Notes:
This 83-nucleotide RNA sequence from Desulfobacula toluolica belongs to the Rfam family "Group II catalytic intron D1-D4-1".

RNA sequence: UGAGGGCAGGGUAACCUGCUCCGACCGCAUGGAAGAAGUCAGCAGAGGGCAUAGUAGCCGCAGGAAAACGAGCCGUGAAUUCC
Dot-bracket structure: (..(((((((....)))))))..)..............((....)).((.......((.((..........)).)).....))
Lineage of the source: Bacteria > Desulfobacteria > Desulfobacteraceae > Desulfobacula > Desulfobacula toluolica. Gene Ontology term of the family: Group II intron splicing. About the family: Group II introns are found in rRNA, tRNA and mRNA of organelles in fungi, plants and protists, and also in mRNA in bacteria. It scores 41 bits against the family's covariance model.